[Rfam]
RNA: skipping-rope RNA
RNA sequence: UCAAGCAGAGGACGGAACUGGCGGCCGUCGCCCAUUGUUAGGAAAUGUGGGAGUGCCACCCCACCUGCUUGU
Dot-bracket structure: .(((((((..(((((...[[[[[.))))).(..........)....(((((..]]]]].)))))))))))).
Numbered sequence: 001u002c003a004a005g006c007a008g009a010g011g012a013c014g015g016a017a018c019u020g021g022c023g024g025c026c027g028u029c030g031c032c033c034a035u036u037g038u039u040a041g042g043a044a045a046u047g048u049g050g051g052a053g054u055g056c057c058a059c060c061c062c063a064c065c066u067g068c069u070u071g072u
Stems, first nucleotide, its partner, number of pairs: 002071007011029005019058005031042001047064005